[Rfam]
RNA sequence: GUCACUGCAAGGUGGGGUGGGGAGGAAGCCGGAGGCAAAACUCUGCACUGAGGAACACGAAUCACAUGUGAGGCAUGUCCGUUGGGGUAAGCCAGCGCGAGAUGCGAAGCCCGUUCCAUCAACAAACGGCAGAAUGAUGGCUUGGCCUCGCUUGGGGGAACUGCACAGGAA
Numbered sequence: 001g002u003c004a005c006u007g008c009a010a011g012g013u014g015g016g017g018u019g020g021g022g023a024g025g026a027a028g029c030c031g032g033a034g035g036c037a038a039a040a041c042u043c044u045g046c047a048c049u050g051a052g053g054a055a056c057a058c059g060a061a062u063c064a065c066a067u068g069u070g071a072g073g074c075a076u077g078u079c080c081g082u083u084g085g086g087g088u089a090a091g092c093c094a095g096c097g098c099g100a101g102a103u104g105c106g107a108a109g110c111c112c113g114u115u116c117c118a119u120c121a122a123c124a125a126a127c128g129g130c131a132g133a134a135u136g137a138u139g140g141c142u143u144g145g146c147c148u149c150g151c152u153u154g155g156g157g158g159a160a161c162u163g164c165a166c167a168g169g170a171a
Stems, first nucleotide, its partner, number of pairs: 002015005030169001035164002041157005046150001050146001062145003067140001074136002078133002081130004085112004091105002094103001
Rfam assigns this 171-nucleotide RNA from Glutamicibacter sp. BW77 to the family "Group II catalytic intron D1-D4-3". The source organism's lineage runs through Bacteria, Actinomycetota, Micrococcales, Micrococcaceae and Glutamicibacter. Rfam describes the family as follows. Group II introns are found in rRNA, tRNA and mRNA of organelles in fungi, plants and protists, and also in mRNA in bacteria.